Rfam assigns this 52-nucleotide RNA sequence from Cebus imitator to the family "mir-1302 microRNA precursor family". A reference for the family is Morin et al. (2008), "Application of massively parallel sequencing to microRNA profiling and discovery in human embryonic stem cells", Genome Res. Gene Ontology terms of the family: miRNA-mediated post-transcriptional gene silencing and RISC complex.

[Rfam]
RNA sequence: AUUUUAGUAUAAAUAUGUCCCUAUAAAUAUUUGGGACAUAUUUAUACUAAAA
Numbered sequence: 001a002u003u004u005u006a007g008u009a010u011a012a013a014u015a016u017g018u019c020c021c022u023a024u025a026a027a028u029a030u031u032u033g034g035g036a037c038a039u040a041u042u043u044a045u046a047c048u049a050a051a052a
Stems, first nucleotide, its partner, number of pairs: 006048007014040003018036004